[Rfam]
The family of this 69-nucleotide sequence from Xenopus tropicalis is "mir-338 microRNA precursor family". Its family is annotated with RISC complex and miRNA-mediated post-transcriptional gene silencing in the Gene Ontology. The organism belongs to Silurana, within Eukaryota. Pairs were carried over by alignment from the consensus structure, which was predicted with RNAalifold. Rfam's curators put it in the seed alignment.

RNA sequence: CCUGGAACAAUAUCCUGAUGCUGAAUGAGUGGGACAUACAUGCUCCAGCAUCAGUGAUUUUGUUGCAGG
Numbered sequence: 001c002c003u004g005g006a007a008c009a010a011u012a013u014c015c016u017g018a019u020g021c022u023g024a025a026u027g028a029g030u031g032g033g034a035c036a037u038a039c040a041u042g043c044u045c046c047a048g049c050a051u052c053a054g055u056g057a058u059u060u061u062g063u064u065g066c067a068g069g
Stems, first nucleotide, its partner, number of pairs: 006064005012058003015054009